Notes:
This 393-nucleotide sequence from Peromyscus maniculatus belongs to the Rfam family "Vertebrate telomerase RNA". A search with the family's covariance model found it, with a score of 161 bits. Rfam 15.1 lists 523 matches to the family in 477 species. A reference for the family is Antal et al. (2002), "Analysis of the structure of human telomerase RNA in vivo", Nucleic Acids Res. Clan: Telomerase clan. Pairs were carried over by alignment from the consensus structure, which is taken from published work. By type it is a non-coding RNA gene. Telomerase is a ribonucleoprotein reverse transcriptase that synthesises telomeric DNA. Telomerase RNAs differ greatly in sequence and structure between vertebrates, ciliates and yeasts, but they share a 5' pseudoknot structure close to the template sequence. Vertebrate telomerase RNAs have a 3' H/ACA snoRNA-like domain.
RNA sequence: CCGGCGGGCACUCGUCUAACCCUGAGGAGGUUGUGGCUGCGGACUGGCUUUCCCGGUUCCCUGCCCGCUGUUUUCCUCGCUGAGUUCCAGCGGGCCGGAAGGCCAGGCCUCGCAGCGUGCCAUUGUGUUCUUCAGCACAAAAACGUCAGCGGCAGGCGCGAGCCUGGAGGCCUGCGGCGCCGGGCCGCCCAGCUCCGCACCCGCCGGAGGCCGCGGCCGGCCGGGGGCCCUGGGCCCCGCUGCCGCCGCGAAGAGCUCUGCUCUGACAGCCGCGGGCCGCGGGAGCUGGGGCCGGCCCGGCCAGCGCUGCAAGCACAGGAACGGAUCAGGUCCGGGUGCGGUGGCUUCCCUGAGCUGUGGGACGUGCACCCCCGGAACGCGCUUCCCACAGCC
Numbered sequence: 001c002c003g004g005c006g007g008g009c010a011c012u013c014g015u016c017u018a019a020c021c022c023u024g025a026g027g028a029g030g031u032u033g034u035g036g037c038u039g040c041g042g043a044c045u046g047g048c049u050u051u052c053c054c055g056g057u058u059c060c061c062u063g064c065c066c067g068c069u070g071u072u073u074u075c076c077u078c079g080c081u082g083a084g085u086u087c088c089a090g091c092g093g094g095c096c097g098g099a100a101g102g103c104c105a106g107g108c109c110u111c112g113c114a115g116c117g118u119g120c121c122a123u124u125g126u127g128u129u130c131u132u133c134a135g136c137a138c139a140a141a142a143a144c145g146u147c148a149g150c151g152g153c154a155g156g157c158g159c160g161a162g163c164c165u166g167g168a169g170g171c172c173u174g175c176g177g178c179g180c181c182g183g184g185c186c187g188c189c190c191a192g193c194u195c196c197g198c199a200c201c202c203g204c205c206g207g208a209g210g211c212c213g214c215g216g217c218c219g220g221c222c223g224g225g226g227g228c229c230c231u232g233g234g235c236c237c238c239g240c241u242g243c244c245g246c247c248g249c250g251a252a253g254a255g256c257u258c259u260g261c262u263c264u265g266a267c268a269g270c271c272g273c274g275g276g277c278c279g280c281g282g283g284a285g286c287u288g289g290g291g292c293c294g295g296c297c298c299g300g301c302c303a304g305c306g307c308u309g310c311a312a313g314c315a316c317a318g319g320a321a322c323g324g325a326u327c328a329g330g331u332c333c334g335g336g337u338g339c340g341g342u343g344g345c346u347u348c349c350c351u352g353a354g355c356u357g358u359g360g361g362a363c364g365u366g367c368a369c370c371c372c373c374g375g376a377a378c379g380c381g382c383u384u385c386c387c388a389c390a391g392c393c
Base pairs, nucleotide, nucleotide: 004157005156048102049101050100051099052098063095064094065093066092067091068090069089070088079150080149081148082147083146085143086142171313173311174310175309176308177307182298183297184296185295186294187292188291189290190289192286193285194284195283196282200276201275202274203273204272212250213249214248215247216246218245219244220243221242224238225237226236252264253263254262255261324385325384329378331376332375333374334373335372341369342368343367344365347362348361349360350359